This 54-nucleotide RNA sequence from Oncorhynchus mykiss belongs to the Rfam family "UnaL2 LINE 3' element". Rfam classes the family as a cis-regulatory element. A reference for the family is Baba et al. (2004), "Solution structure of an RNA stem-loop derived from the 3' conserved region of eel LINE UnaL2", RNA. Pairs were carried over by alignment from the consensus structure, which is taken from published work.

[Rfam]
RNA sequence: UGCACUCAAUACUUUAAGUCGCUCUGGACAAGAGCGUCUGCUAAAUUACUCAAA
Numbered sequence: 001u002g003c004a005c006u007c008a009a010u011a012c013u014u015u016a017a018g019u020c021g022c023u024c025u026g027g028a029c030a031a032g033a034g035c036g037u038c039u040g041c042u043a044a045a046u047u048a049c050u051c052a053a054a
Base pairs, nucleotide, nucleotide: 013043015040016039020036021035022034023033024032025031